[Rfam]
RNA sequence: UGGUGUCUGGCUUCAACAUUGUUUGGACAGAACCCA
Numbered sequence: 001u002g003g004u005g006u007c008u009g010g011c012u013u014c015a016a017c018a019u020u021g022u023u024u025g026g027a028c029a030g031a032a033c034c035c036a
Stems, first nucleotide, its partner, number of pairs: 001036003006031003010028001012027005017021001
The record is a 36-nucleotide sequence from Otolemur garnettii, which matches "Iron response element I" in Rfam. The family's consensus secondary structure is taken from published work. It is annotated as a cis-regulatory element. Rfam links the family to the GO term response to iron ion. On this family, see Hentze et al., Science 1987: "Identification of the iron-responsive element for the translational regulation of human ferritin mRNA". Taxonomically the source falls in Otolemur (Eukaryota, Vertebrata, Tetrapoda, Primates). A search with the family's covariance model found it, with a score of 37 bits.